[Rfam]
RNA sequence: UAAAAAGAAGGUUCUUGUUGCCUUUUGUGAACGAGACUCUUAAAAACUUCAGGCAAAUUUACUUGCAUUGUUAUUGGGUGAACAUCUAGACAUUCUUUGUGAAUGAAUGACCGAAUGUUCAGUAAAUGAUGCCACAUCU
Numbered sequence: 001u002a003a004a005a006a007g008a009a010g011g012u013u014c015u016u017g018u019u020g021c022c023u024u025u026u027g028u029g030a031a032c033g034a035g036a037c038u039c040u041u042a043a044a045a046a047c048u049u050c051a052g053g054c055a056a057a058u059u060u061a062c063u064u065g066c067a068u069u070g071u072u073a074u075u076g077g078g079u080g081a082a083c084a085u086c087u088a089g090a091c092a093u094u095c096u097u098u099g100u101g102a103a104u105g106a107a108u109g110a111c112c113g114a115a116u117g118u119u120c121a122g123u124a125a126a127u128g129a130u131g132c133c134a135c136a137u138c139u
Base pairs, nucleotide, nucleotide: 005049006048007047011038014035015034016033017032066131067130068129069128070127071126072125079121080120081119082118083117084116085115

Overview: Rfam assigns this 139-nucleotide sequence from Hibiscus trionum to the family "Small nucleolar RNA snoR74". The organism belongs to Hibiscus, within Eukaryota. The match comes from Rfam's covariance-model search (87 bits). The base pairs follow the family's consensus structure, which was predicted with WAR. It is annotated as an H/ACA-box small nucleolar RNA.